[Rfam]
RNA sequence: UAGUGUCUAUUGUGUGUAACAGCAACUCCAUGUGGAAUGUUCUGGGUUUCCAGUGGAGAUGCUGUUAUUAUCCAUGGGCAC
Dot-bracket structure: .........(.(...((((((((..((((((.(((..............)))))))))..))))))))...).).......
Numbered sequence: 001u002a003g004u005g006u007c008u009a010u011u012g013u014g015u016g017u018a019a020c021a022g023c024a025a026c027u028c029c030a031u032g033u034g035g036a037a038u039g040u041u042c043u044g045g046g047u048u049u050c051c052a053g054u055g056g057a058g059a060u061g062c063u064g065u066u067a068u069u070a071u072c073c074a075u076g077g078g079c080a081c
Stems, first nucleotide, its partner, number of pairs: 010074001012072001016068008026058006033052003